[Rfam]
RNA: Bacterial RNase P class A
Organism: Cryomorpha ignava
RNA sequence: CGUGAAAACCGUUCCAUCGAUGCGUUUGCAAAAGCGUGUAGGAAAGUCCGGACAAUACAGAGCACCACGCUUCCUAACGGGAAGAUGUUUCGAUUUAUCGGAGCAAUAGAAAGUGCCACAGAGACAAUACCGCCCCUCGGCUUCGCUGGGGGUUCGUUUAUCGAUCAUUCGGGAUUUAUAUCGGCUUUUUCGGCUGCUUCCCGAGCGGAGUCGAAUCGGUCCCCGAGCGGAGUCGAGGGGUAAGGGUGAAAAGAGUGGGGUAAGAGCCCACAGCCAUGUUUGGCAACAGGCAUGGGAGGAAAACCUCGUGGAUUGCAAGACCAUGUAAACCCGGGCUUGAGGGCUGCUCGCCCGAUCCGGGAGGGUAGGUUGCUAGAGUUUAUCGGCGACGGUAAACCCAGAUAAAUGAUGGAAGCGCAGAUGGUAAAACAUCGGCGUACAGAAUCCGGCUUAUAGGUUUUUAAGGGUC
Numbered sequence: 001c002g003u004g005a006a007a008a009c010c011g012u013u014c015c016a017u018c019g020a021u022g023c024g025u026u027u028g029c030a031a032a033a034g035c036g037u038g039u040a041g042g043a044a045a046g047u048c049c050g051g052a053c054a055a056u057a058c059a060g061a062g063c064a065c066c067a068c069g070c071u072u073c074c075u076a077a078c079g080g081g082a083a084g085a086u087g088u089u090u091c092g093a094u095u096u097a098u099c100g101g102a103g104c105a106a107u108a109g110a111a112a113g114u115g116c117c118a119c120a121g122a123g124a125c126a127a128u129a130c131c132g133c134c135c136c137u138c139g140g141c142u143u144c145g146c147u148g149g150g151g152g153u154u155c156g157u158u159u160a161u162c163g164a165u166c167a168u169u170c171g172g173g174a175u176u177u178a179u180a181u182c183g184g185c186u187u188u189u190u191c192g193g194c195u196g197c198u199u200c201c202c203g204a205g206c207g208g209a210g211u212c213g214a215a216u217c218g219g220u221c222c223c224c225g226a227g228c229g230g231a232g233u234c235g236a237g238g239g240g241u242a243a244g245g246g247u248g249a250a251a252a253g254a255g256u257g258g259g260g261u262a263a264g265a266g267c268c269c270a271c272a273g274c275c276a277u278g279u280u281u282g283g284c285a286a287c288a289g290g291c292a293u294g295g296g297a298g299g300a301a302a303a304c305c306u307c308g309u310g311g312a313u314u315g316c317a318a319g320a321c322c323a324u325g326u327a328a329a330c331c332c333g334g335g336c337u338u339g340a341g342g343g344c345u346g347c348u349c350g351c352c353c354g355a356u357c358c359g360g361g362a363g364g365g366u367a368g369g370u371u372g373c374u375a376g377a378g379u380u381u382a383u384c385g386g387c388g389a390c391g392g393u394a395a396a397c398c399c400a401g402a403u404a405a406a407u408g409a410u411g412g413a414a415g416c417g418c419a420g421a422u423g424g425u426a427a428a429a430c431a432u433c434g435g436c437g438u439a440c441a442g443a444a445u446c447c448g449g450c451u452u453a454u455a456g457g458u459u460u461u462u463a464a465g466g467g468u469c
Stems, first nucleotide, its partner, number of pairs: 001465001003463008011454001012414007020039008044452003048449005053315004060349004065311005070084005085107001086105008108306002113304002116299002130245002132241016255271005274296001275294008319371004330361005341353004378397008